[Rfam]
RNA sequence: GUCAGCAACCCCUGACUUGAAGUCGGGGGCUUCAGGCGACUCCGCCUCAGCCCUAGUUGACCAGACUAUCCGUUUAGGGCAAGAGUUAAAAGACCCACUUCAGGAUGCUUGCUAGUCCUGAACCUUGGAAUCAAGCGAUUAAACAGGCUUAAGGGGUUAAACCAGUGUCGCUUGAAGAGUUACCGACCCUAAACAAAGUCGAAGCAAACCUUAC
Numbered sequence: 001g002u003c004a005g006c007a008a009c010c011c012c013u014g015a016c017u018u019g020a021a022g023u024c025g026g027g028g029g030c031u032u033c034a035g036g037c038g039a040c041u042c043c044g045c046c047u048c049a050g051c052c053c054u055a056g057u058u059g060a061c062c063a064g065a066c067u068a069u070c071c072g073u074u075u076a077g078g079g080c081a082a083g084a085g086u087u088a089a090a091a092g093a094c095c096c097a098c099u100u101c102a103g104g105a106u107g108c109u110u111g112c113u114a115g116u117c118c119u120g121a122a123c124c125u126u127g128g129a130a131u132c133a134a135g136c137g138a139u140u141a142a143a144c145a146g147g148c149u150u151a152a153g154g155g156g157u158u159a160a161a162c163c164a165g166u167g168u169c170g171c172u173u174g175a176a177g178a179g180u181u182a183c184c185g186a187c188c189c190u191a192a193a194c195a196a197a198g199u200c201g202a203a204g205c206a207a208a209c210c211u212u213a214c
Base pairs, nucleotide, nucleotide: 001061002060003059004058005057006056008054010029011028012026013025015023016022064200065199066198067197072194073193074192075191076190077189085187086186087185095128096127099122100121101120102119103118104117105116106115107210109208110207111205112204113203131175132174133173134172135171136170137169138168139167143166144165146163147162149160150159151158152157
Shown here is a 214-nucleotide RNA sequence from Chroococcidiopsis thermalis, a member of the family "HNH endonuclease-associated RNA and ORF (HEARO) RNA". It scores 116 bits against the family's covariance model. Taxonomically the source falls in Chroococcidiopsis thermalis (Bacteria, Bacillati, Cyanobacteriota, Chroococcidiopsis). Pairs were carried over by alignment from the consensus structure, which is taken from published work. The family's RNA type in Rfam is non-coding RNA gene. For this family Rfam cites "Exceptional structured noncoding RNAs revealed by bacterial metagenome analysis" (Weinberg et al., Nature, 2009).